[Rfam]
RNA sequence: CAGAAAUGGAGGUUCCUUCCAGCCUCAAGCAUCUUUAAGAUGGUGGCGAUGUCUAUUUUGGGCUGAAGGGAGCUCCCAAUUCUU
Numbered sequence: 001c002a003g004a005a006a007u008g009g010a011g012g013u014u015c016c017u018u019c020c021a022g023c024c025u026c027a028a029g030c031a032u033c034u035u036u037a038a039g040a041u042g043g044u045g046g047c048g049a050u051g052u053c054u055a056u057u058u059u060g061g062g063c064u065g066a067a068g069g070g071a072g073c074u075c076c077c078a079a080u081u082c083u084u
Stems, first nucleotide, its partner, number of pairs: 007078003011074008021064002024061002027058002
Dot-bracket structure: ......(((.((((((((..((.((.((............................)).)).))..)))))))).)))......